Rfam assigns this 114-nucleotide sequence from Syntrophotalea carbinolica to the family "PyrR binding site". By type it is a cis-regulatory element. Rfam 15.1 lists 1,498 matches to the family in 930 species.
RNA sequence: AGGCCUUUUAAGUUAAUCCAGAGAGGUUAGCAAGGGUGAUCAUAAAGUCUUACCAAAAAAUUAAAACCAAGAUGUCCGGGUAUCUUCUCCCGAAAGAGAGGAUACCUUUUUUUU
Number, nucleotide and partner (000 for none) at each position: 001a000002g000003g037004c036005c035006u034007u033008u032009u000010a000011a000012g000013u030014u029015a028016a027017u026018c025019c000020a000021g000022a000023g000024a000025g018026g017027u016028u015029a014030g013031c000032a008033a007034g006035g005036g004037u003038g000039a000040u000041c000042a000043u000044a000045a000046a000047g073048u072049c071050u070051u069052a062053c000054c000055a000056a000057a000058a000059a000060a000061u000062u052063a000064a000065a000066a000067c000068c000069a051070a050071g049072a048073u047074g000075u000076c000077c000078g107079g106080g105081u104082a103083u102084c101085u100086u099087c098088u097089c096090c000091c000092g000093a000094a000095a000096g089097a088098g087099a086100g085101g084102a083103u082104a081105c080106c079107u078108u000109u000110u000111u000112u000113u000114u000